[Rfam]
RNA sequence: AUACCUUAAACUUAUGAGUAAGGAAAAAAAAAAGGCUUGGCAUGAUGCCUGAAUCCUCACUGCUAAUGUGAGACAAAGUUUUGAGCUGGUAAAGGUUUCUGCUGAGGUGACCCACCUAAUUUGUGGGAUGCCUGGGAGUCACAAUCUGCUGU
Numbered sequence: 001a002u003a004c005c006u007u008a009a010a011c012u013u014a015u016g017a018g019u020a021a022g023g024a025a026a027a028a029a030a031a032a033a034g035g036c037u038u039g040g041c042a043u044g045a046u047g048c049c050u051g052a053a054u055c056c057u058c059a060c061u062g063c064u065a066a067u068g069u070g071a072g073a074c075a076a077a078g079u080u081u082u083g084a085g086c087u088g089g090u091a092a093a094g095g096u097u098u099c100u101g102c103u104g105a106g107g108u109g110a111c112c113c114a115c116c117u118a119a120u121u122u123g124u125g126g127g128a129u130g131c132c133u134g135g136g137a138g139u140c141a142c143a144a145u146c147u148g149c150u151g152u
Base pairs, nucleotide, nucleotide: 004023005022006021007020008019034055035054037052038051039050040049056072057071058070059069060068087151088150089149090148093147094146095145096144097143102136103135105133106132107131108130109129111127112126113125114124115123
The record is a 152-nucleotide RNA sequence from Ailuropoda melanoleuca, which matches "U12 minor spliceosomal RNA" in Rfam.
NCBI's taxonomy places the organism under Eukaryota, Craniata, Euteleostomi, Ursidae, Ailuropoda.
It is annotated as a spliceosomal small nuclear RNA.
The pairing is the family consensus, mapped onto this sequence.
A reference for the family is Tarn and Steitz (1997), "Pre-mRNA splicing: the discovery of a new spliceosome doubles the challenge", Trends Biochem Sci.
The match comes from Rfam's covariance-model search (95 bits).
Clan: U2 clan.